Background:
A member of the RNA family "Small nucleolar RNA SNORD71" from Cricetulus griseus, 85 nucleotides long. Its family is annotated with RNA processing and nucleolus in the Gene Ontology. Lineage of the source: Eukaryota > Chordata > Theria > Cricetidae > Cricetulus.

RNA sequence: AGAUCAUUAGAAGAUGAAAAUCAGGGAUGAUCUUUGGCUAGGCAUCACAUCACAAAGCUGACACUUAAGCUUCUGACAGAAAUUU
Numbered sequence: 001a002g003a004u005c006a007u008u009a010g011a012a013g014a015u016g017a018a019a020a021u022c023a024g025g026g027a028u029g030a031u032c033u034u035u036g037g038c039u040a041g042g043c044a045u046c047a048c049a050u051c052a053c054a055a056a057g058c059u060g061a062c063a064c065u066u067a068a069g070c071u072u073c074u075g076a077c078a079g080a081a082a083u084u085u
Stems, first nucleotide, its partner, number of pairs: 002084003007079002009074002012033004017028001034061005042053001
From the family's description: snoRNA HBII-239 belongs to the family of C/D snoRNAs.It is the human orthologue of the mouse MBII-239 described and is predicted to guide 2'O-ribose methylation of 5.8S rRNA on residue U14.